[Rfam]
RNA sequence: GCAUGGGUUUGGAUUUAUGGCAGGCUCGUCCCCCUGGGCCUCUCAGUGCUCUGAGCCAGAGCAAACUGUGGCCCCGAACCAUUGCCUGGCCUCUGUGCCAUAGGCUGCAGGCACUGAAGCAGGUCGCACAGUA
Numbered sequence: 001g002c003a004u005g006g007g008u009u010u011g012g013a014u015u016u017a018u019g020g021c022a023g024g025c026u027c028g029u030c031c032c033c034c035u036g037g038g039c040c041u042c043u044c045a046g047u048g049c050u051c052u053g054a055g056c057c058a059g060a061g062c063a064a065a066c067u068g069u070g071g072c073c074c075c076g077a078a079c080c081a082u083u084g085c086c087u088g089g090c091c092u093c094u095g096u097g098c099c100a101u102a103g104g105c106u107g108c109a110g111g112c113a114c115u116g117a118a119g120c121a122g123g124u125c126g127c128a129c130a131g132u133a
Base pairs, nucleotide, nucleotide: 001056002055004053005051006050007049008048015046018045019044020043022041023040024039025037026036069126070125071124072123073122080116081115085111086110087107088106089105090104091103092102
The family of this 133-nucleotide sequence from Callorhinus ursinus is "Small nucleolar RNA SNORA42/SNORA80 family". Rfam links the family to the GO terms RNA processing and nucleolus. Rfam's curators write: The members of this family belong to the H/ACA class of snoRNAs that guide the sites of modification of uridines to pseudouridines. Human ACA42 (SNORA42) was cloned from HeLa cells by immunoprecipitation with anti-GAR1 antibody. Its is predicted to guide the pseudouridylation of residues U109 and U572 of 18S rRNA. ACA42 shares the same host gene with ACA26, ACA46, ACA50. This family also includes mammalian snoRNA ACA67 (SNORA80) which was identified by computational screening and its expression in mouse experimentally verified by Northern blot and primer extension analysis. The base pairs follow the family's consensus structure, which was predicted with RNAalifold. For this family Rfam cites "A computational screen for mammalian pseudouridylation guide H/ACA RNAs" (Schattner et al., RNA, 2006). The family's RNA type in Rfam is H/ACA-box small nucleolar RNA. The family has 21 seed sequences and 1,535 matches in Rfam 15.1. The match comes from Rfam's covariance-model search (120 bits). The organism belongs to Callorhinus, within Eukaryota.